[Rfam]
RNA sequence: AUAAAAGUAAUGAUGGGAAGAGUAUAUUAGGAAUCGAUACAAAGAGAGUCAGGUUAGGUGAAAGCUGAUAAUCGAUGAAUAAUAGAAGAUGGCCCCUGAACUGUUUGGGUGAGAAUAUUUUACCAAUUUUAAGCCCAUACCGCCGGCAGCGUUAAGUCAUGUGAAUGCACAAUUGAGGCAAAUACAGCAAUGUAUUUGUAAAAUAAGGUGGUACCACGAAAGCAAAUCUUUCGUCCUUUGU
Numbered sequence: 001a002u003a004a005a006a007g008u009a010a011u012g013a014u015g016g017g018a019a020g021a022g023u024a025u026a027u028u029a030g031g032a033a034u035c036g037a038u039a040c041a042a043a044g045a046g047a048g049u050c051a052g053g054u055u056a057g058g059u060g061a062a063a064g065c066u067g068a069u070a071a072u073c074g075a076u077g078a079a080u081a082a083u084a085g086a087a088g089a090u091g092g093c094c095c096c097u098g099a100a101c102u103g104u105u106u107g108g109g110u111g112a113g114a115a116u117a118u119u120u121u122a123c124c125a126a127u128u129u130u131a132a133g134c135c136c137a138u139a140c141c142g143c144c145g146g147c148a149g150c151g152u153u154a155a156g157u158c159a160u161g162u163g164a165a166u167g168c169a170c171a172a173u174u175g176a177g178g179c180a181a182a183u184a185c186a187g188c189a190a191u192g193u194a195u196u197u198g199u200a201a202a203a204u205a206a207g208g209u210g211g212u213a214c215c216a217c218g219a220a221a222g223c224a225a226a227u228c229u230u231u232c233g234u235c236c237u238u239u240g241u
Base pairs, nucleotide, nucleotide: 007101008100015096016095017094025084026083027082028081029080037072038071048069049068050067051066052065104139106137107136108135109134110133141151142150143149178199179198180197181196182195183194184193205238206237207236208235216234217233218232219231220230221229222228
This 241-nucleotide sequence from Alkalibaculum bacchi belongs to the Rfam family "T-box leader".
The source organism's lineage runs through Bacteria, Clostridia, Eubacteriales, Eubacteriaceae and Alkalibaculum.
Uncharged tRNA acts as the effector for transcription antitermination of genes in the T-box leader family. T-boxes are found upstream of many aminoacyl-tRNA synthetase genes and some amino acid biosynthetic genes usually in Gram-positive bacteria.
The match comes from Rfam's covariance-model search (107 bits).
Rfam 15.1 lists 19,395 matches to the family in 1,923 species.